[Rfam]
RNA sequence: UUUACAAAAGGCAUAUAAUCUGCCAAAAUACCUAAUCGCGUAGGUCUGAAAAAUCAGGCCCAUUCUAAAUUAACUAGUAGGAUGUCCAAGCGCG
Numbered sequence: 001u002u003u004a005c006a007a008a009a010g011g012c013a014u015a016u017a018a019u020c021u022g023c024c025a026a027a028a029u030a031c032c033u034a035a036u037c038g039c040g041u042a043g044g045u046c047u048g049a050a051a052a053a054u055c056a057g058g059c060c061c062a063u064u065c066u067a068a069a070u071u072a073a074c075u076a077g078u079a080g081g082a083u084g085u086c087c088a089a090g091c092g093c094g
Stems, first nucleotide, its partner, number of pairs: 002018003006014001037094005043060007061084007
This 94-nucleotide RNA sequence belongs to the Rfam family "ATPC RNA motif". The base pairs follow the family's consensus structure, which is taken from published work. For this family Rfam cites "Identification of 22 candidate structured RNAs in bacteria using the CMfinder comparative genomics pipeline" (Weinberg et al., Nucleic Acids Res, 2007).